[Rfam]
RNA: U4atac minor spliceosomal RNA
RNA sequence: ACUAUUCCUCCCUUGGGGUUGCGCUACUGUUCAAUGAGUGCUUGGUGAGGGCGCUACUGCUAAUACCUACACAACACACCUACAUCAGCUAGAGCUUUGCUUUACUUUGGUGCAAUUUUUGGAAAA
Numbered sequence: 001a002c003u004a005u006u007c008c009u010c011c012c013u014u015g016g017g018g019u020u021g022c023g024c025u026a027c028u029g030u031u032c033a034a035u036g037a038g039u040g041c042u043u044g045g046u047g048a049g050g051g052c053g054c055u056a057c058u059g060c061u062a063a064u065a066c067c068u069a070c071a072c073a074a075c076a077c078a079c080c081u082a083c084a085u086c087a088g089c090u091a092g093a094g095c096u097u098u099g100c101u102u103u104a105c106u107u108u109g110g111u112g113c114a115a116u117u118u119u120u121g122g123a124a125a126a
Base pairs, nucleotide, nucleotide: 006018007017008016009015021060022059023058026055028053029052030051031050032049038046039045083112084111085110086109087108090104091103092102093101094100095099